RNA sequence: UACCUAAUCCCUAAAUCAAUAGGACACGGUAUAUAAAUCCAUCCCUGGUAGAAAGCUCCUCGUCGGAGCACCAGGGAUGGUCAUAUCCCGAAAGGGGUGUGGGUGAUCGAAAGGUCAUC
Numbered sequence: 001u002a003c004c005u006a007a008u009c010c011c012u013a014a015a016u017c018a019a020u021a022g023g024a025c026a027c028g029g030u031a032u033a034u035a036a037a038u039c040c041a042u043c044c045c046u047g048g049u050a051g052a053a054a055g056c057u058c059c060u061c062g063u064c065g066g067a068g069c070a071c072c073a074g075g076g077a078u079g080g081u082c083a084u085a086u087c088c089c090g091a092a093a094g095g096g097g098u099g100u101g102g103g104u105g106a107u108c109g110a111a112a113g114g115u116c117a118u119c
Stems, first nucleotide, its partner, number of pairs: 001031004010023004039080011055069005082101008102119006